RNA sequence: AUUUUCGAAAGAUCUCUCAGGAUCGCUGGAGUUGACUAAUAUAAUUUUACCAGGUAGAGAUAAUGAUUAGAGGAAUCAGGGAAAUCGUUUUCCUUGACCUAUUCUCAAACUCCCAAUAGGUAAAAAGGGCUAAAUAUCUUUAUUUGUAUUUUGCCCGUUUGUCAAAUAAUAUAACUCCAAGUGGGCCAUUUUUGGUAAGCAGAACUGGCGAUGAGGGAUGCUCCUAACGCUUGGAUAAGGUGCCUAAAUAUUCGCUCAUGAGAUCCCAUAAAAGGUGUUGGUUCAUAAUGACAGUAGGACGGUGGUCAUGGAAGUCGAAAUCCGCUAAGGAGUGUGUAACAACUCACCUACCGAAUGAACUAGCCCUGAAAAUGGAUGGCGCUAAAGCGGAUUACCGAUACCAAGCCAUAAAAGGACAAGAAAAGAACUUCUUCUUUUUAGUAUCCUUUUAUGAGUAGAAAAUCGUGGGGUUUUGUGUCGAAGCGAAAUACGUGAGUUUUCGUGGAACAUAUCCCUAGUGCAGAU
Number, nucleotide and partner (000 for none) at each position: 001a463002u462003u461004u460005u459006c458007g000008a000009a000010a000011g024012a023013u022014c021015u020016c000017u000018c000019a000020g015021g014022a013023u012024c011025g000026c000027u179028g178029g177030a176031g175032u174033u173034g000035a000036c000037u000038a000039a000040u000041a000042u000043a000044a000045u125046u124047u123048u122049a121050c120051c119052a000053g000054g000055u000056a000057g113058a111059g110060a000061u000062a000063a000064u107065g106066a105067u000068u000069a102070g000071a100072g099073g098074a000075a000076u097077c096078a095079g094080g093081g092082a000083a090084a000085u000086c000087g000088u000089u000090u083091u000092c081093c080094u079095u078096g077097a076098c073099c072100u071101a000102u069103u000104c000105u066106c065107a064108a000109a000110c059111u058112c000113c057114c000115a000116a000117u000118a000119g051120g050121u049122a048123a047124a046125a045126a000127g156128g155129g154130c153131u000132a151133a150134a149135u148136a000137u000138c000139u000140u000141u000142a000143u000144u000145u000146g000147u000148a135149u134150u133151u132152u000153g130154c129155c128156c127157g000158u000159u000160u000161g000162u000163c000164a000165a000166a000167u000168a000169a000170u000171a000172u000173a033174a032175c031176u030177c029178c028179a027180a000181g000182u000183g000184g000185g209186c208187c207188a206189u000190u204191u203192u202193u201194g200195g000196u000197a000198a000199g000200c194201a193202g192203a191204a190205c000206u188207g187208g186209c185210g000211a000212u000213g000214a225215g224216g223217g000218a000219u000220g000221c000222u000223c216224c215225u214226a000227a000228c000229g406230c405231u404232u403233g402234g000235a000236u000237a000238a000239g396240g395241u394242g000243c000244c000245u000246a000247a000248a393249u000250a392251u000252u000253c389254g388255c387256u000257c000258a000259u000260g000261a000262g000263a000264u000265c000266c000267c000268a000269u000270a000271a000272a000273a367274g366275g365276u000277g364278u363279u362280g361281g360282u359283u358284c357285a356286u355287a000288a000289u000290g000291a000292c000293a000294g351295u350296a349297g348298g347299a000300c324301g323302g322303u000304g000305g000306u318307c317308a000309u000310g000311g000312a000313a000314g000315u000316c000317g307318a306319a000320a000321u000322c302323c301324g300325c329326u000327a000328a000329g325330g345331a000332g000333u000334g343335u342336g000337u000338a000339a000340c000341a000342a335343c334344u000345c330346a000347c298348c297349u296350a295351c294352c000353g000354a000355a286356u285357g284358a283359a282360c281361u280362a279363g278364c277365c275366c274367u273368g000369a000370a000371a000372a000373u000374g000375g000376a000377u000378g000379g000380c000381g000382c000383u000384a000385a000386a000387g255388c254389g253390g000391a000392u250393u248394a241395c240396c239397g000398a000399u000400a000401c000402c233403a232404a231405g230406c229407c453408a452409u451410a450411a449412a448413a447414g446415g445416a000417c000418a000419a000420g000421a000422a000423a000424a000425g000426a000427a000428c000429u000430u000431c000432u000433u000434c000435u000436u000437u000438u000439u000440a000441g000442u000443a000444u000445c415446c414447u413448u412449u411450u410451a409452u408453g407454a000455g000456u000457a000458g006459a005460a004461a003462a002463u001464c520465g000466u517467g516468g515469g514470g513471u000472u511473u000474u000475g508476u507477g000478u000479c000480g000481a000482a000483g503484c502485g000486a000487a000488a000489u000490a497491c496492g000493u000494g000495a000496g491497u490498u000499u000500u000501c000502g484503u483504g000505g000506a000507a476508c475509a000510u000511a472512u000513c470514c469515c468516u467517a466518g000519u000520g464521c000522a000523g000524a000525u000
RNA: Eukaryotic large subunit ribosomal RNA, nucleotides 1075 to 1599